[Rfam]
RNA sequence: UUGAAUGUUUUCUAGGGUUCCGCAACAAAUUAAUGUUGGACUGGUCCAAGAGAAAACACACAGCUUUUAUGCUGUGCCACGGAGGGAUAAAAGCCUGGGAGAA
Numbered sequence: 001u002u003g004a005a006u007g008u009u010u011u012c013u014a015g016g017g018u019u020c021c022g023c024a025a026c027a028a029a030u031u032a033a034u035g036u037u038g039g040a041c042u043g044g045u046c047c048a049a050g051a052g053a054a055a056a057c058a059c060a061c062a063g064c065u066u067u068u069a070u071g072c073u074g075u076g077c078c079a080c081g082g083a084g085g086g087a088u089a090a091a092a093g094c095c096u097g098g099g100a101g102a103a
Stems, first nucleotide, its partner, number of pairs: 007057006015047002020044002022041001023038005059076006078098001080101001084096003
Background
Shown here is a 103-nucleotide RNA from Oceanobacillus zhaokaii, a member of the family "Guanidine-I riboswitch aptamer". The match comes from Rfam's covariance-model search (87 bits). On this family, see Trachman RJ 3rd and Ferre-D'Amare, RNA 2021: "An uncommon [K(+)(Mg(2+))2] metal ion triad imparts stability and selectivity to the Guanidine-I riboswitch". The organism belongs to Oceanobacillus, within Bacteria. From the family's description: This family represents a conserved RNA structure found upstream of the ykkC and yxkD genes in Bacillus subtilis and related genes in other bacteria.